[Rfam]
RNA sequence: CCUUUUGAGUGCUAUAUUAAACUAGAGUAGAUAUUCUUAUGAAUUUCAAAAUAGGGCAGGAGGAAAAAGGAA
Numbered sequence: 001c002c003u004u005u006u007g008a009g010u011g012c013u014a015u016a017u018u019a020a021a022c023u024a025g026a027g028u029a030g031a032u033a034u035u036c037u038u039a040u041g042a043a044u045u046u047c048a049a050a051a052u053a054g055g056g057c058a059g060g061a062g063g064a065a066a067a068a069g070g071a072a
Stems, first nucleotide, its partner, number of pairs: 001070005010058004022054003030047002034043002
A member of the RNA family "RAGATH-18 RNA" from Clostridioides difficile, 72 nucleotides long. Pairs were carried over by alignment from the consensus structure, which is taken from published work. It is annotated as a small RNA. Actinobacteria, Firmicutes, Fusobacteria, Thermotogae (1 example).